[Rfam]
RNA sequence: AUGUUAUCGAGAAAGGUGGAGAGAUUAGACUCUGUGAAACCUUGGCAACCCUUCGGAAACGAAGAAGGUGCUAAAUUCUAUCCCAAUUUAUUCGGGAAAAGAUAACCA
Dot-bracket structure: ..((((((....(((((...(((..[[[[)))......)))))((((.((((((......))))..))))))...(]]]]((((.(.....).))))..)))))))..
RNA: SAM riboswitch aptamer (S box leader)
Organism: Chryseobacterium sp. FH1